[Rfam]
Nucleotides: 125
Base pairs, nucleotide, nucleotide: 007027008025009024010023011022012020013019014018031085032084033083034082035081036080042077043076044075045054046053047052058074059073060072061071062070063069089115090114091113092112093111094110095109096108097107098106
Number, partner (000 for none) and nucleotide at each position: 001000u002000u003000u004000a005000a006000g007027u008025a009024c010023a011022g012020g013019u014018u015000a016000a017000a018014a019013a020012c021000a022011c023010u024009g025008u026000u027007a028000a029000a030000u031085c032084a033083a034082g035081c036080a037000g038000a039000u040000a041000a042077g043076a044075g045054a046053u047052u048000u049000a050000u051000u052047a053046a054045u055000u056000a057000a058074g059073c060072g061071u062070a063069u064000g065000u066000g067000a068000a069063g070062u071061a072060c073059g074058u075044c076043u077042c078000c079000c080036u081035g082034c083033u084032u085031g086000g087000a088000a089115a090114a091113g092112g093111u094110c095109u096108u097107g098106u099000u100000a101000u102000c103000a104000u105000a106098a107097c108096a109095a110094g111093a112092c113091c114090u115089u116000u117000u118000u119000u120000a121000a122000u123000u124000a125000u